[Rfam]
RNA sequence: UUUUUUAGGGAGAAUGUGGCCUUCCAGCAAGGGGAGGCCGGGAAUUCCU
Numbered sequence: 001u002u003u004u005u006u007a008g009g010g011a012g013a014a015u016g017u018g019g020c021c022u023u024c025c026a027g028c029a030a031g032g033g034g035a036g037g038c039c040g041g042g043a044a045u046u047c048c049u
Stems, first nucleotide, its partner, number of pairs: 008049005015042001017040009
A member of the RNA family "HIV Ribosomal frameshift signal" from Lentivirus humimdef1, 49 nucleotides long. The sequence is in the family's curated seed alignment. Rfam describes the family as follows. This family represents the HIV Ribosomal frameshift signal. HIV uses a system called -1 ribosomal frameshifting to produce the required ratio of Gag and Gag-Pol polyproteins. The stem-loop structure of the frameshift signal is thought to impede the ribosome and cause slippage in the 5' direction, this causes the -1 frameshift and translation then continues in the new frame. A reference for the family is Biswas et al. (2004), "The human immunodeficiency virus type 1 ribosomal frameshifting site is an invariant sequence determinant and an important target for antiviral therapy", J Virol. Pairs were carried over by alignment from the consensus structure, which is taken from published work. Rfam links the family to the GO term viral translational frameshifting.